Alphaproteobacteria transfer-messenger RNA: a 362-nucleotide RNA sequence from Shinella sp. WSJ-2. A search with the family's covariance model found it, with a score of 306 bits. The family's consensus secondary structure is taken from published work. For this family Rfam cites "Phylogenetic analysis of tmRNA secondary structure" (Williams and Bartel, RNA, 1996). The family's RNA type in Rfam is non-coding RNA gene.
RNA sequence: ACCCUUUUCUUGGAAGCGGGGAAUGCCUAUAUGUGACGUGCUGCCUCGGCAGCUAUGGCAAUAAACGGGCGGUGUAAUAAACCCAUUGGACCCGGGGGCGGUACCCGGCGCCUCCACCAAAAACCGGUCAAUCCUUGACGGACCGGCUUUUGAUGGGGGCGAAAUAGGAUCGACAAGGGCGUAAAGAUCGACUUUUUGCUCGGCAUUGUACCACCGUUAUCGGGCUAAACUUGUAGUUGCAAACGACAACUAUGCGGAAGCUCGUCUCGCUGCUUAAUCGCGGUGUGACACUUCACUCAAAGUCCUGACGGGUCGCACCGGCAGGCGGGGUCCGAAGGCACCUGGCAACAGAAGCCUUCACC
Numbered sequence: 001a002c003c004c005u006u007u008u009c010u011u012g013g014a015a016g017c018g019g020g021g022a023a024u025g026c027c028u029a030u031a032u033g034u035g036a037c038g039u040g041c042u043g044c045c046u047c048g049g050c051a052g053c054u055a056u057g058g059c060a061a062u063a064a065a066c067g068g069g070c071g072g073u074g075u076a077a078u079a080a081a082c083c084c085a086u087u088g089g090a091c092c093c094g095g096g097g098g099c100g101g102u103a104c105c106c107g108g109c110g111c112c113u114c115c116a117c118c119a120a121a122a123a124c125c126g127g128u129c130a131a132u133c134c135u136u137g138a139c140g141g142a143c144c145g146g147c148u149u150u151u152g153a154u155g156g157g158g159g160c161g162a163a164a165u166a167g168g169a170u171c172g173a174c175a176a177g178g179g180c181g182u183a184a185a186g187a188u189c190g191a192c193u194u195u196u197u198g199c200u201c202g203g204c205a206u207u208g209u210a211c212c213a214c215c216g217u218u219a220u221c222g223g224g225c226u227a228a229a230c231u232u233g234u235a236g237u238u239g240c241a242a243a244c245g246a247c248a249a250c251u252a253u254g255c256g257g258a259a260g261c262u263c264g265u266c267u268c269g270c271u272g273c274u275u276a277a278u279c280g281c282g283g284u285g286u287g288a289c290a291c292u293u294c295a296c297u298c299a300a301a302g303u304c305c306u307g308a309c310g311g312g313u314c315g316c317a318c319c320g321g322c323a324g325g326c327g328g329g330g331u332c333c334g335a336a337g338g339c340a341c342c343u344g345g346c347a348a349c350a351g352a353a354g355c356c357u358u359c360a361c362c
Base pairs, nucleotide, nucleotide: 040053041052042051043050044049057200058199059198060197061196067193068192070190071189072188073187082179083178084177086176087175088174092108093107094106095105096104109161110160111159112158113157114156115155201216202215203214206227208225211223212222328343329342330341331340334359335358336357337356338355339354